[Rfam]
RNA sequence: CAAUAUGAUAUGCCUAAUUCCCAAUCGGGAAACGGGGGAACCACUUUGGGUGAAUUGAUUUCGACGUUUGGCUAGACCAGCGCCAAAGAAAUCAUAGGGAACCUUCAACCGAACCCCUCAGCUAACCUCGUCGGCACUGGAAGGAGUUUCA
Numbered sequence: 001c002a003a004u005a006u007g008a009u010a011u012g013c014c015u016a017a018u019u020c021c022c023a024a025u026c027g028g029g030a031a032a033c034g035g036g037g038g039a040a041c042c043a044c045u046u047u048g049g050g051u052g053a054a055u056u057g058a059u060u061u062c063g064a065c066g067u068u069u070g071g072c073u074a075g076a077c078c079a080g081c082g083c084c085a086a087a088g089a090a091a092u093c094a095u096a097g098g099g100a101a102c103c104u105u106c107a108a109c110c111g112a113a114c115c116c117c118u119c120a121g122c123u124a125a126c127c128u129c130g131u132c133g134g135c136a137c138u139g140g141a142a143g144g145a146g147u148u149u150c151a
Base pairs, nucleotide, nucleotide: 011136012135013134014133018031019030020029032131033130034129035128036127037126048116049115050114056094057093058092059091060090061089062088097110098109
The record is a 151-nucleotide RNA sequence from Paenibacillus sp. GSMTC-2017, which matches "c-di-AMP riboswitch aptamer (ydaO/yuaA leader)" in Rfam. The source organism's lineage runs through Bacteria, Bacillota, Bacilli, Caryophanales and Paenibacillus. This family represents a conserved RNA structure found upstream of the ydaO and yuaA genes in Bacillus subtilis and related genes in other bacteria. For this family Rfam cites "New RNA motifs suggest an expanded scope for riboswitches in bacterial genetic control" (Barrick et al., Proc Natl Acad Sci U S A, 2004).